[Rfam]
RNA: mir-6012 microRNA precursor family
RNA sequence: UGCAGGGUGAACAGACUGAUCUUGUUUCUGCGGAAAUGUUAGUUACAGUCAUUUCGGCGAUGAGAUCAGCCUGUCGAACCCAGC
Numbered sequence: 001u002g003c004a005g006g007g008u009g010a011a012c013a014g015a016c017u018g019a020u021c022u023u024g025u026u027u028c029u030g031c032g033g034a035a036a037u038g039u040u041a042g043u044u045a046c047a048g049u050c051a052u053u054u055c056g057g058c059g060a061u062g063a064g065a066u067c068a069g070c071c072u073g074u075c076g077a078a079c080c081c082a083g084c
Stems, first nucleotide, its partner, number of pairs: 002084002005081004011074004016069011033055006
Dot-bracket structure: .((.((((..((((.(((((((((((......((((((...........))))))...))))))))))).))))...)))).))